[Rfam]
RNA sequence: AUGAUUACUUGAGGAGAGACUGUGUGAAACAGCGCCGAAGGAGCAAGCAUUAAAUGUGAAUCUCUCAGGCAAAAAGACUCUUGUAUGACG
Numbered sequence: 001a002u003g004a005u006u007a008c009u010u011g012a013g014g015a016g017a018g019a020c021u022g023u024g025u026g027a028a029a030c031a032g033c034g035c036c037g038a039a040g041g042a043g044c045a046a047g048c049a050u051u052a053a054a055u056g057u058g059a060a061u062c063u064c065u066c067a068g069g070c071a072a073a074a075a076g077a078c079u080c081u082u083g084u085a086u087g088a089c090g
Stems, first nucleotide, its partner, number of pairs: 006085003011080003020032004034070003037066002041064003047057002
RNA: Glycine riboswitch aptamer